RNA sequence: UUCACUGCUUAUCGAAAACUUUAAACUAUAAUCUAUAUGUCCUUUUAGCUGGGUUAGACAUAUAUAAAACAAUAAAGAAACCACAGCA
Numbered sequence: 001u002u003c004a005c006u007g008c009u010u011a012u013c014g015a016a017a018a019c020u021u022u023a024a025a026c027u028a029u030a031a032u033c034u035a036u037a038u039g040u041c042c043u044u045u046u047a048g049c050u051g052g053g054u055u056a057g058a059c060a061u062a063u064a065u066a067a068a069a070c071a072a073u074a075a076a077g078a079a080a081c082c083a084c085a086g087c088a
Stems, first nucleotide, its partner, number of pairs: 034064003038060004048087004052082002
A member of the RNA family "RAGATH-27 RNA", 88 nucleotides long.